Rfam assigns this 92-nucleotide RNA from Albula glossodonta to the family "mir-1388 microRNA precursor family". Its family is annotated with RISC complex and miRNA-mediated post-transcriptional gene silencing in the Gene Ontology. The match comes from Rfam's covariance-model search (79 bits). The literature on the family includes a 2009 paper in BMC Genomics by Soares et al., "Parallel DNA pyrosequencing unveils new zebrafish microRNAs".
RNA sequence: AUGUGGGCCACGCCUCCAGGACUGUCCAGCCUGAGAAUGGUGAAAGGUGCUGUCAAUCUCAGGUUUGUCAGCCCGAGAGGCGUCGGCUCGGU
Numbered sequence: 001a002u003g004u005g006g007g008c009c010a011c012g013c014c015u016c017c018a019g020g021a022c023u024g025u026c027c028a029g030c031c032u033g034a035g036a037a038u039g040g041u042g043a044a045a046g047g048u049g050c051u052g053u054c055a056a057u058c059u060c061a062g063g064u065u066u067g068u069c070a071g072c073c074c075g076a077g078a079g080g081c082g083u084c085g086g087c088u089c090g091g092u
Stems, first nucleotide, its partner, number of pairs: 005089003008085001010083007019074002022071003026067001028065009038055002